[Rfam]
RNA sequence: AUAUGAUAAAGGCAAACCUAUCGAAAGGUAGGGGCGCAAAGUCAUGGGUCUAAGGGAUUUUUGUCCUACGAUUGCCAGACUGCCAUA
Number, nucleotide and partner (000 for none) at each position: 001a000002u000003a000004u000005g000006a000007u000008a000009a000010a000011g000012g037013c036014a000015a000016a000017c032018c031019u030020a029021u028022c027023g000024a000025a000026a000027g022028g021029u020030a019031g018032g017033g000034g000035c000036g013037c012038a000039a000040a081041g080042u079043c078044a000045u077046g076047g075048g072049u071050c070051u000052a000053a000054g000055g066056g065057a064058u063059u000060u000061u000062u000063g058064u057065c056066c055067u000068a000069c000070g050071a049072u048073u000074g000075c047076c046077a045078g043079a042080c041081u040082g000083c000084c000085a000086u000087a000